A member of the RNA family "NLPC-P60 RNA" from Streptomyces sp. CcalMP-8W, 102 nucleotides long.
[Rfam]
RNA sequence: CGGUGCUUGCAUCACCUGACACCGGGUGACCGGAUUAAUCGGAUGAGAUCCCUUGCCCAGGGACGGGUCCGGCUUCUCCGGGGCCGUCCCCGUCACGGAGGU
Numbered sequence: 001c002g003g004u005g006c007u008u009g010c011a012u013c014a015c016c017u018g019a020c021a022c023c024g025g026g027u028g029a030c031c032g033g034a035u036u037a038a039u040c041g042g043a044u045g046a047g048a049u050c051c052c053u054u055g056c057c058c059a060g061g062g063a064c065g066g067g068u069c070c071g072g073c074u075u076c077u078c079c080g081g082g083g084c085c086g087u088c089c090c091c092g093u094c095a096c097g098g099a100g101g102u
Stems, first nucleotide, its partner, number of pairs: 025053002028050001031047001034044003061089006068082004

The source organism's lineage runs through Bacteria, Bacillati, Kitasatosporales, Streptomycetaceae and Streptomyces. It is one of the family's seed sequences. By type it is a cis-regulatory element.